[Rfam]
RNA: permuted transfer-messenger RNA
RNA sequence: GACGAUAAACGCGCAUGCAAUAAGCGGACUGGACUCGGGGGCGGUACCCGACGACUCCACCAAUAAGUCCUUUCUUUUCUCCACGGAUUAGAGAGGGCUUUUCAGUGGGGUCGAAAUAGGAUCGACAGACGUCUAAAGAUGUUAGCUUUCGUUCGUGUGAGCACCGAUAAAUGCUCGUAUAUUAUAAUUGCAAAUGACAAUUAUUCUGAGGAUUUUGCUCUAGCUGCGUAA
Numbered sequence: 001g002a003c004g005a006u007a008a009a010c011g012c013g014c015a016u017g018c019a020a021u022a023a024g025c026g027g028a029c030u031g032g033a034c035u036c037g038g039g040g041g042c043g044g045u046a047c048c049c050g051a052c053g054a055c056u057c058c059a060c061c062a063a064u065a066a067g068u069c070c071u072u073u074c075u076u077u078u079c080u081c082c083a084c085g086g087a088u089u090a091g092a093g094a095g096g097g098c099u100u101u102u103c104a105g106u107g108g109g110g111u112c113g114a115a116a117u118a119g120g121a122u123c124g125a126c127a128g129a130c131g132u133c134u135a136a137a138g139a140u141g142u143u144a145g146c147u148u149u150c151g152u153u154c155g156u157g158u159g160a161g162c163a164c165c166g167a168u169a170a171a172u173g174c175u176c177g178u179a180u181a182u183u184a185u186a187a188u189u190g191c192a193a194a195u196g197a198c199a200a201u202u203a204u205u206c207u208g209a210g211g212a213u214u215u216u217g218c219u220c221u222a223g224c225u226g227c228g229u230a231a
Stems, first nucleotide, its partner, number of pairs: 001153005013142004025131002029128003035051005052113009154166002